[Rfam]
RNA: tRNA
RNA sequence: GGGGGAUUGGCGGAAUUGGCAGACGCACUAGACUUAGGAUCUAGCGUCUUUGACGUAAGGGUUCAAGUCCCUUAUCCCCCA
Number, nucleotide and partner (000 for none) at each position: 001g080002g079003g078004g077005g076006a075007u074008u000009g000010g026011c025012g024013g000014a000015a000016u000017u000018g000019g000020c000021a000022g000023a000024c012025g011026c010027a000028c044029u043030a042031g041032a040033c000034u000035u000036a000037g000038g000039a000040u032041c031042u030043a029044g028045c000046g000047u000048c000049u000050u000051u000052g000053a000054c000055g000056u000057a073058a072059g071060g070061g069062u000063u000064c000065a000066a000067g000068u000069c061070c060071c059072u058073u057074a007075u006076c005077c004078c003079c002080c001081a000